[Rfam]
Shown here is a 262-nucleotide RNA from Anaerobium acetethylicum, a member of the family "Bacterial large signal recognition particle RNA". Clan: SRP clan. By type it is a non-coding RNA gene. Taxonomically the source falls in Anaerobium (Bacteria, Bacillati, Bacillota, Clostridia). The signal recognition particle (SRP) is a universally conserved ribonucleoprotein involved in the co-translational targeting of proteins to membranes.

RNA sequence: CCGUGCAGCCGGGGAGUCAGCGGUGCCCUGUACCUACAAUCCGCUAUAGUGGGGGUGAUGUCCUGCCCCGGGUUUUUUACUGCAGAGCUGCCCUUUAUAAGUGGUGUUGACGUCUGGGUCUCGCGCAACAAAAAUUCAUGAAUCGUGUCAGGUCAGGAAUGAAGCAGCACUAAGUGAAACCUUUUGUGUGCCGUGAGGUAGCCUGGGCCGAGCUAACUGUAGAGGUAACGUUUGUGGUAGGAAUUCAAAGCAGGACGCACGG
Numbered sequence: 001c002c003g004u005g006c007a008g009c010c011g012g013g014g015a016g017u018c019a020g021c022g023g024u025g026c027c028c029u030g031u032a033c034c035u036a037c038a039a040u041c042c043g044c045u046a047u048a049g050u051g052g053g054g055g056u057g058a059u060g061u062c063c064u065g066c067c068c069c070g071g072g073u074u075u076u077u078u079a080c081u082g083c084a085g086a087g088c089u090g091c092c093c094u095u096u097a098u099a100a101g102u103g104g105u106g107u108u109g110a111c112g113u114c115u116g117g118g119u120c121u122c123g124c125g126c127a128a129c130a131a132a133a134a135u136u137c138a139u140g141a142a143u144c145g146u147g148u149c150a151g152g153u154c155a156g157g158a159a160u161g162a163a164g165c166a167g168c169a170c171u172a173a174g175u176g177a178a179a180c181c182u183u184u185u186g187u188g189u190g191c192c193g194u195g196a197g198g199u200a201g202c203c204u205g206g207g208c209c210g211a212g213c214u215a216a217c218u219g220u221a222g223a224g225g226u227a228a229c230g231u232u233u234g235u236g237g238u239a240g241g242a243a244u245u246c247a248a249a250g251c252a253g254g255a256c257g258c259a260c261g262g
Base pairs, nucleotide, nucleotide: 001262002261003260004259005258006257008056009055010054011029012028013027014026016024017023018022033053034052035051036050037049062254063253064252065251066250070246071245072244073243074242075241077240078239079238080237081236082235083234084233085232086231089227090226093224094223095222096221097220098219101217102216103214104213105212112208113207114206115205116204117203118202119201120197121196122195123194124193125192126188127187129186130185131184132183133182135178136177137176138175139174145170146169147168148167153162154161155160
Dot-bracket structure: ((((((.(((((((.(((...))).))))...(((((...........)))))))).....(((((...((((((.((((((((((..((..((((((..(((((......((((((((((((((((.(((((.(((((.....((((....(((....)))....))))...)))))...)))))))...))))))...))))))))...))).)).)))))).))...))))))))))))))))...)))))..))))))